[Rfam]
RNA sequence: GCUCAGGUACUUAGUGACUCUCAAUCACAUAUUGCUUUGCAUACUUUGAGGGUCGCUCUGUGCCUGUGCCG
Numbered sequence: 001g002c003u004c005a006g007g008u009a010c011u012u013a014g015u016g017a018c019u020c021u022c023a024a025u026c027a028c029a030u031a032u033u034g035c036u037u038u039g040c041a042u043a044c045u046u047u048g049a050g051g052g053u054c055g056c057u058c059u060g061u062g063c064c065u066g067u068g069c070c071g
Stems, first nucleotide, its partner, number of pairs: 001069002004066007013057011024042002
mir-306 microRNA precursor family: a 71-nucleotide RNA from Drosophila mojavensis. For this family Rfam cites "The small RNA profile during Drosophila melanogaster development" (Aravin et al., Dev Cell, 2003). Pairs were carried over by alignment from the consensus structure, which was predicted with RNAalifold.